RNA sequence: UAGUUGCCAUAACUCCGAGCUCUUAAGCUAAGUUCCUGCGGGGAUACGCUGAAUGAGCCAGUGGCAUUUUGCCACGAGGGCCAGGUUGGAAAUGACCUUGCCUCCCGUGUUUGGAAAGGUGUUCCGUGGCGCAACAA
Numbered sequence: 001u002a003g004u005u006g007c008c009a010u011a012a013c014u015c016c017g018a019g020c021u022c023u024u025a026a027g028c029u030a031a032g033u034u035c036c037u038g039c040g041g042g043g044a045u046a047c048g049c050u051g052a053a054u055g056a057g058c059c060a061g062u063g064g065c066a067u068u069u070u071g072c073c074a075c076g077a078g079g080g081c082c083a084g085g086u087u088g089g090a091a092a093u094g095a096c097c098u099u100g101c102c103u104c105c106c107g108u109g110u111u112u113g114g115a116a117a118g119g120u121g122u123u124c125c126g127u128g129g130c131g132c133a134a135c136a137a
Base pairs, nucleotide, nucleotide: 011123012122013121015119016118019058020057021056022055024052026050027049028048032045033044034043035042061075062074063073064072065071078103079102080101081100083098084097085096086095087094088093104114105113

A member of the RNA family "Molybdenum/Tungsten riboswitch aptamer (Moco RNA motif)" from Vibrio proteolyticus, 137 nucleotides long.
Rfam links the family to the GO terms molybdenum ion binding, regulation of gene expression and tungstate binding.
A search with the family's covariance model found it, with a score of 91 bits.
The source organism's lineage runs through Bacteria, Pseudomonadota, Gammaproteobacteria, Vibrionales and Vibrio proteolyticus.